[Rfam]
RNA sequence: UGAGUCGGCCGGGUGAUCGCGGCGAAUGAACCGCCCGCGUGAUGCGGGCAGGCAGGAGCCGAGGAAAGUCCGGACUCCGAAGAGCACGGUGGUUGCUAACGGCAACCCGGGGUGACCCGCGGGCAUGUGCAACAGAGAGUAGACCGCCCGGUUUUUGACCGGGUAAGGGUGAAAGGGUGCGGUAAGAGCGCACCGGCGUGGCAGGUGACUGCCGCGGCCAGGUAAACCCCACCGGGAGCAAGGCAUCACGGCCUGCCACACGGCAGGCCCGAUCAGGUGUUGGAGGGCUGCUCGCCCGAGCCUGAAGGUAGCUGCUUGAGGCGCCCAGCGAUGGGUGGCCCAGAUGGAUGAUCACCGCCGCCAGCGGCACAGAAUCCGGCUUAUACGCCGGCUCAUUCG
Numbered sequence: 001u002g003a004g005u006c007g008g009c010c011g012g013g014u015g016a017u018c019g020c021g022g023c024g025a026a027u028g029a030a031c032c033g034c035c036c037g038c039g040u041g042a043u044g045c046g047g048g049c050a051g052g053c054a055g056g057a058g059c060c061g062a063g064g065a066a067a068g069u070c071c072g073g074a075c076u077c078c079g080a081a082g083a084g085c086a087c088g089g090u091g092g093u094u095g096c097u098a099a100c101g102g103c104a105a106c107c108c109g110g111g112g113u114g115a116c117c118c119g120c121g122g123g124c125a126u127g128u129g130c131a132a133c134a135g136a137g138a139g140u141a142g143a144c145c146g147c148c149c150g151g152u153u154u155u156u157g158a159c160c161g162g163g164u165a166a167g168g169g170u171g172a173a174a175g176g177g178u179g180c181g182g183u184a185a186g187a188g189c190g191c192a193c194c195g196g197c198g199u200g201g202c203a204g205g206u207g208a209c210u211g212c213c214g215c216g217g218c219c220a221g222g223u224a225a226a227c228c229c230c231a232c233c234g235g236g237a238g239c240a241a242g243g244c245a246u247c248a249c250g251g252c253c254u255g256c257c258a259c260a261c262g263g264c265a266g267g268c269c270c271g272a273u274c275a276g277g278u279g280u281u282g283g284a285g286g287g288c289u290g291c292u293c294g295c296c297c298g299a300g301c302c303u304g305a306a307g308g309u310a311g312c313u314g315c316u317u318g319a320g321g322c323g324c325c326c327a328g329c330g331a332u333g334g335g336u337g338g339c340c341c342a343g344a345u346g347g348a349u350g351a352u353c354a355c356c357g358c359c360g361c362c363a364g365c366g367g368c369a370c371a372g373a374a375u376c377c378g379g380c381u382u383a384u385a386c387g388c389c390g391g392c393u394c395a396u397u398c399g
Stems, first nucleotide, its partner, number of pairs: 001395009011384001012356007020061004027054002066382003070379005075238004082293004087234005092106005107121001108119004122229002127227002129223002144168002146164008176194006196218001197216008242313003273305006285297004320339001322337006